[Rfam]
RNA: Makes More Granules Regulator RNA (mmgR)
RNA sequence: UCAUGCAGCCCUCCUUUGGGCGUUUCCUCCCUAGACUUGGGCCGCUCGCUUGUCGGGCGGCCUUUUUUUCUGCCUGC
Numbered sequence: 001u002c003a004u005g006c007a008g009c010c011c012u013c014c015u016u017u018g019g020g021c022g023u024u025u026c027c028u029c030c031c032u033a034g035a036c037u038u039g040g041g042c043c044g045c046u047c048g049c050u051u052g053u054c055g056g057g058c059g060g061c062c063u064u065u066u067u068u069u070c071u072g073c074c075u076g077c
Stems, first nucleotide, its partner, number of pairs: 008021004040062009